[Rfam]
RNA sequence: UGAAAAUCGCCAUUACGGGAGUCGUCCCCCAACCAGGGGCAACCUUACCAUACUCUGAAUUC
Numbered sequence: 001u002g003a004a005a006a007u008c009g010c011c012a013u014u015a016c017g018g019g020a021g022u023c024g025u026c027c028c029c030c031a032a033c034c035a036g037g038g039g040c041a042a043c044c045u046u047a048c049c050a051u052a053c054u055c056u057g058a059a060u061u062c
Stems, first nucleotide, its partner, number of pairs: 018046002021043002024040005

Shown here is a 62-nucleotide sequence from Chroococcidiopsis thermalis, a member of the family "Plastid-psbN 5UTR RNA". The family's RNA type in Rfam is cis-regulatory element. Taxonomically the source falls in Chroococcidiopsis thermalis (Bacteria, Bacillati, Cyanobacteriota, Chroococcidiopsidaceae). Rfam describes the family as follows. Plastid psbN is a non-coding RNA (ncRNA) recognised in plastids. It was reported as a conserved 11 stem-loop in the prime untranslated region (5UTR) of psbN genes. It has been reported that the motif is retained in a subset of mature transcripts in barley, which can suggests a possible role in transcript alternative 5 prime processing. The literature on the family includes a 2023 paper in Plant Commun by Richter et al., "Retrograde signaling in plants: A critical review focusing on the GUN pathway and beyond". Pairs were carried over by alignment from the consensus structure, which was predicted with LocARNA. The family has 63 seed sequences and 2,345 matches in Rfam 15.1.